[Rfam]
RNA sequence: UGUCUCCUCCAUCUCCUCAAAGGAUGGAUUAGGCCCCAGGCUUCACGGCUUGGGGCCCUUUUU
Numbered sequence: 001u002g003u004c005u006c007c008u009c010c011a012u013c014u015c016c017u018c019a020a021a022g023g024a025u026g027g028a029u030u031a032g033g034c035c036c037c038a039g040g041c042u043u044c045a046c047g048g049c050u051u052g053g054g055g056c057c058c059u060u061u062u063u
Base pairs, nucleotide, nucleotide: 008028009027010026011025012024013023033056034055035054036053037052038051039050040049

Shown here is a 63-nucleotide RNA from Diaphorobacter ruginosibacter, a member of the family "Betaproteobacteria toxic small RNA". It scores 60 bits against the family's covariance model. Rfam's curators write: Overexpression in amino aid rich medium attenuates growth, suggesting role in repressing amino acid intake and metabolism. Taxonomically the source falls in Diaphorobacter (Bacteria, Pseudomonadota, Betaproteobacteria, Burkholderiales). Pairs were carried over by alignment from the consensus structure, which was predicted with WAR. A reference for the family is Kimelman et al. (2012), "A vast collection of microbial genes that are toxic to bacteria", Genome Res.